[Rfam]
RNA sequence: UCACUUCACAUUCAGGCGCGAUCCUCUAUAUGGGCACCUGCCGGACAUGUGCCGGCUAUGACGAUAAACUGCGCCGUACAAUAGACGCAGCGGACCCGGGGGCGGUACCCGGCGGCUCCACCACCAUCACCGCGCUCCACGACAGGGAGGCGGCGGUGUUGAUGACGGGGCCGAACUAGGAUCGACGUGUGUUGAAAAGCGGUGUUUUCGUCCGGGCUGAGUAACCCGUUAAAGGCUCAAAACUCAUAAGUGCCAACGACAACGAAGCACUUGCUCUCGCCGCGUAAUUCUAGGGCCUAGCGGCCUGAAGUUACAAAGCUAGAACGCGGUUGGACCCACCGGUCAACAGAAGCGGAUUCC
Dot-bracket structure: .......................................(((((.......)))))...(((((......(((((((........(((.(((...(((((.......)))))(((((((...............................................)))))))............)))))).......)))))))..)))))((((.[[[....))))........]]].......................................................................................((((.[[.[[.))))............]].]]..
Rfam assigns this 360-nucleotide RNA sequence from Novosphingobium sp. CF614 to the family "Alphaproteobacteria transfer-messenger RNA".
The base pairs follow the family's consensus structure, which is taken from published work.
The family is grouped with related families in Rfam's "tRNA clan".
The match comes from Rfam's covariance-model search (217 bits).
For this family Rfam cites "Phylogenetic analysis of tmRNA secondary structure" (Williams and Bartel, RNA, 1996).
Bacterial tmRNA, also known as 10Sa RNA or SsrA, is named for its dual tRNA and mRNA-like properties. Its role is to liberate the mRNA from a stalled ribosome.